[Rfam]
A member of the RNA family "6C RNA" from Williamsia sp. 1138, 74 nucleotides long.

RNA sequence: GGCUUUCAGCCCGACCCCCCGGGGCUGAACGCGACGACCCUGGCCUCCUCCCCCCCUGGCCAGGGUCGUCCCCA
Number, nucleotide and partner (000 for none) at each position: 001g000002g000003c000004u000005u029006u028007c027008a026009g025010c024011c023012c022013g000014a000015c000016c000017c000018c000019c000020c000021g000022g012023g011024g010025c009026u008027g007028a006029a005030c000031g000032c000033g070034a069035c068036g067037a066038c065039c064040c063041u062042g061043g060044c059045c058046u000047c000048c000049u000050c000051c000052c000053c000054c000055c000056c000057u000058g045059g044060c043061c042062a041063g040064g039065g038066u037067c036068g035069u034070c033071c000072c000073c000074a000

About this RNA: Gene Ontology term of the family: sporulation. It is annotated as a cis-regulatory element.